The record is a 97-nucleotide sequence from Jeotgalibacillus soli, which matches "SAM riboswitch aptamer (S box leader)" in Rfam. The organism belongs to Jeotgalibacillus, within Bacteria. The SAM riboswitch is found upstream of a number of genes which code for proteins involved in methionine or cysteine biosynthesis in Gram-positive bacteria.
RNA sequence: UUUCUAUCUAGAGAGGUGGAGGGACAGGCCCUGUGAAAUCUCGGCAACAGCAUUUUGACUGUGCCAAUUCCUGCAAGUUUUACUUGGAAGAUAGGAG
Numbered sequence: 001u002u003u004c005u006a007u008c009u010a011g012a013g014a015g016g017u018g019g020a021g022g023g024a025c026a027g028g029c030c031c032u033g034u035g036a037a038a039u040c041u042c043g044g045c046a047a048c049a050g051c052a053u054u055u056u057g058a059c060u061g062u063g064c065c066a067a068u069u070c071c072u073g074c075a076a077g078u079u080u081u082a083c084u085u086g087g088a089a090g091a092u093a094g095g096a097g
Base pairs, nucleotide, nucleotide: 001097002096003095004094005093006092007091008090013042014041015040016039017038021031022030023029025073026072027071028070043065044064045063046062048061049060069089074086075085076084077083078082